[Rfam]
RNA sequence: UAUUUAGCGUUGAUAGGGAAGAGUAAGUAUUGGAGUUUUUAUAGAGAGCUUCUGAUGGUGGAAAUGAAGCAAAACGAAUUUACUGAACAUGGCCUUUGAGCUUCGUACCGAUAUGUAGGCUACGACGAGAUGAGCACUCGUUACAACAGCGGCGGUAUGAGUUCGUACUGGCAGAGGCAAAUAGUGUAAGCUAUUUGUAAAAUUAGGUGGUACCACGAGAUAAUUCGUCCUAAUC
Number, nucleotide and partner (000 for none) at each position: 001u000002a000003u000004u000005u000006a000007g101008c100009g000010u000011u000012g000013a000014u000015a096016g095017g094018g093019a000020a000021g000022a000023g000024u000025a000026a084027g083028u082029a081030u000031u000032g000033g000034a000035g000036u000037u073038u072039u071040u000041a000042u000043a000044g000045a000046g000047a000048g070049c069050u068051u067052c066053u000054g000055a000056u000057g000058g000059u000060g000061g000062a000063a000064a000065u000066g052067a051068a050069g049070c048071a039072a038073a037074a000075c000076g000077a000078a000079u000080u000081u029082a028083c027084u026085g000086a000087a000088c000089a000090u000091g000092g000093c018094c017095u016096u015097u000098g000099a000100g008101c007102u000103u000104c124105g123106u122107a121108c000109c119110g000111a000112u000113a000114u000115g000116u000117a000118g000119g109120c000121u107122a106123c105124g104125a000126c140127g139128a138129g000130a000131u000132g000133a000134g000135c000136a000137c000138u128139c127140g126141u000142u000143a000144c000145a000146a000147c000148a000149g000150c000151g000152g000153c000154g000155g000156u000157a000158u000159g000160a000161g000162u000163u000164c000165g000166u000167a000168c000169u000170g000171g000172c000173a000174g000175a000176g000177g198178c197179a196180a195181a194182u193183a192184g000185u000186g000187u000188a000189a000190g000191c000192u183193a182194u181195u180196u179197g178198u177199a000200a000201a000202a000203u000204u232205a231206g230207g229208u000209g000210g000211u000212a000213c000214c000215a228216c227217g226218a225219g224220a000221u000222a000223a000224u219225u218226c217227g216228u215229c207230c206231u205232a204233a000234u000235c000

A member of the RNA family "T-box leader" from Lysinibacillus sp. 2017, 235 nucleotides long. Lineage of the source: Bacteria > Bacillati > Bacillota > Bacilli > Lysinibacillus. Uncharged tRNA acts as the effector for transcription antitermination of genes in the T-box leader family. For this family Rfam cites "Solution structure of the Bacillus subtilis T-box antiterminator RNA: seven nucleotide bulge characterized by stacking and flexibility" (Gerdeman et al., J Mol Biol, 2003). The base pairs follow the family's consensus structure, which is taken from published work.